[Rfam]
RNA sequence: GCUCCCGAGAGGCAGCGAUAAGCACCUGGCUGGCUGCGCGGCAACCUCUACUCCGUCUGAGGUGCUCCAGGGGAAGAGCCGGCCGUACGGCGACCGCCGACCGGCAAGGACGGAUU
Numbered sequence: 001g002c003u004c005c006c007g008a009g010a011g012g013c014a015g016c017g018a019u020a021a022g023c024a025c026c027u028g029g030c031u032g033g034c035u036g037c038g039c040g041g042c043a044a045c046c047u048c049u050a051c052u053c054c055g056u057c058u059g060a061g062g063u064g065c066u067c068c069a070g071g072g073g074a075a076g077a078g079c080c081g082g083c084c085g086u087a088c089g090g091c092g093a094c095c096g097c098c099g100a101c102c103g104g105c106a107a108g109g110a111c112g113g114a115u116u
Base pairs, nucleotide, nucleotide: 001079002078003077004076009039012037013036014035015034016033021031022030040066041065042064045062046061047060050056082105083104084103085102088099089098090097091096
Dot-bracket structure: ((((....(..(((((....((.......)).))))).)(((..(((..(.....)...))).))).........))))..((((..((((....))))..))))...........